[Rfam]
RNA sequence: AGAGAUCUUCGGGGCAGGUGCAAUUCCUGACCGGCGGUGAUGCUGCAUAAGCUAAGCCCGCGACUCCCCAAGCCGAUCACGGCAGGGGGACUGACCUGGUGAGAAUCCAGGGCCGACGGUAUAGUCCGGAUGGGAGAAGAUCGCC
Number, nucleotide and partner (000 for none) at each position: 001a000002g000003a000004g142005a141006u140007c139008u138009u137010c136011g000012g000013g000014g000015c000016a028017g027018g026019u000020g000021c000022a000023a000024u000025u000026c018027c017028u016029g000030a125031c124032c115033g114034g061035c060036g059037g058038u000039g000040a000041u000042g000043c000044u000045g000046c000047a000048u000049a000050a000051g000052c000053u000054a000055a000056g113057c112058c037059c036060g035061c034062g000063a000064c000065u090066c089067c088068c087069c086070a000071a000072g000073c000074c000075g000076a000077u000078c000079a000080c000081g000082g000083c000084a000085g000086g069087g068088g067089g066090a065091c000092u000093g000094a000095c111096c110097u109098g108099g107100u000101g000102a000103g000104a000105a000106u000107c099108c098109a097110g096111g095112g057113c056114c033115g032116a000117c128118g127119g126120u000121a000122u000123a000124g031125u030126c119127c118128g117129g000130a000131u000132g000133g000134g000135a000136g010137a009138a008139g007140a006141u005142c004143g000144c000145c000
This 145-nucleotide sequence from Paenibacillus sp. 598K belongs to the Rfam family "FMN riboswitch aptamer (RFN element)". Lineage of the source: Bacteria > Bacillati > Caryophanales > Paenibacillaceae > Paenibacillus. From the family's description: The RFN element is a highly conserved domain that is found frequently in the 5'-untranslated regions of prokaryotic mRNAs that encode for flavin mononucleotide (FMN) biosynthesis and transport proteins. This element is a metabolite-dependent riboswitch that directly binds FMN in the absence of proteins. The match comes from Rfam's covariance-model search (109 bits). For this family Rfam cites "FMN riboswitch aptamer symmetry facilitates conformational switching through mutually exclusive coaxial stacking configurations" (Wilt et al., J Struct Biol X, 2020).